This 83-nucleotide RNA from Aquarana catesbeiana belongs to the Rfam family "mir-1421 microRNA precursor family". The family has 53 seed sequences and 110 matches in Rfam 15.1. Lineage of the source: Eukaryota > Bilateria > Tetrapoda > Neobatrachia > Aquarana.
RNA sequence: CUGUAUAUAUAGGCUACACUCAAUGCAGAGUAUAUAUAUAUAUAUAUAUAUACUCUGCAUUGAGUGUAGCCUAUAUAUACAGU
Numbered sequence: 001c002u003g004u005a006u007a008u009a010u011a012g013g014c015u016a017c018a019c020u021c022a023a024u025g026c027a028g029a030g031u032a033u034a035u036a037u038a039u040a041u042a043u044a045u046a047u048a049u050a051u052a053c054u055c056u057g058c059a060u061u062g063a064g065u066g067u068a069g070c071c072u073a074u075a076u077a078u079a080c081a082g083u
Stems, first nucleotide, its partner, number of pairs: 003080005009074013023060017
Dot-bracket structure: ..(((((.(((((((((((((.(((((((((((((((((....))))))))))))))))).))))))))))))).)))))...